[Rfam]
RNA sequence: ACGUUUUUUUCAUAGAGAUUUAGAUUUAAGGUUAGAAGAAUUGUGGAAGUCGUGAGACUUCCCUUUUUUUCAUCUUAAAUUGUGUCUUUCGUUCACCUUAAUUUUUAGCAAGGUGCGGAGGAUAAAAAAAGCCUUUUCGCGAGAAAAGGCUUUUUU
Numbered sequence: 001a002c003g004u005u006u007u008u009u010u011c012a013u014a015g016a017g018a019u020u021u022a023g024a025u026u027u028a029a030g031g032u033u034a035g036a037a038g039a040a041u042u043g044u045g046g047a048a049g050u051c052g053u054g055a056g057a058c059u060u061c062c063c064u065u066u067u068u069u070u071c072a073u074c075u076u077a078a079a080u081u082g083u084g085u086c087u088u089u090c091g092u093u094c095a096c097c098u099u100a101a102u103u104u105u106u107a108g109c110a111a112g113g114u115g116c117g118g119a120g121g122a123u124a125a126a127a128a129a130a131g132c133c134u135u136u137u138c139g140c141g142a143g144a145a146a147a148g149g150c151u152u153u154u155u156u
Stems, first nucleotide, its partner, number of pairs: 025079008035071006045062007087121001088119004094115006126155013
Shown here is a 156-nucleotide sequence from Bacteroides helcogenes, a member of the family "Bacteroides sRNA BTnc231".